A member of the RNA family "c-di-GMP-I riboswitch aptamer" from Candidatus Brocadiaceae bacterium S225, 138 nucleotides long.
The literature on the family includes a 2007 paper in Nucleic Acids Res by Weinberg et al., "Identification of 22 candidate structured RNAs in bacteria using the CMfinder comparative genomics pipeline".
Rfam describes the family as follows. GEMM was predicted in a large-scale screen for bacterial structured RNA regulatory elements.
It scores 54 bits against the family's covariance model.
The source organism's lineage runs through Bacteria, Pseudomonadati, Candidatus Brocadiia, Candidatus Brocadiales and Candidatus Brocadiaceae.
[Rfam]
RNA sequence: UCUUGAUAAAGGCAAACUCUGGGUGACUAGGGGGCGCAAAGUAAAGGGUCUUUGAAGGUAUACAGGCGUGUGUUGCGAAUAUGAAGAGUGUCCCUGCCGUCUGUAAACAGUCCAGCAAGAGACAGCCUUACUGCCAAA
Numbered sequence: 001u002c003u004u005g006a007u008a009a010a011g012g013c014a015a016a017c018u019c020u021g022g023g024u025g026a027c028u029a030g031g032g033g034g035c036g037c038a039a040a041g042u043a044a045a046g047g048g049u050c051u052u053u054g055a056a057g058g059u060a061u062a063c064a065g066g067c068g069u070g071u072g073u074u075g076c077g078a079a080u081a082u083g084a085a086g087a088g089u090g091u092c093c094c095u096g097c098c099g100u101c102u103g104u105a106a107a108c109a110g111u112c113c114a115g116c117a118a119g120a121g122a123c124a125g126c127c128u129u130a131c132u133g134c135c136a137a138a
Stems, first nucleotide, its partner, number of pairs: 012037002017032006040132004045128003048123006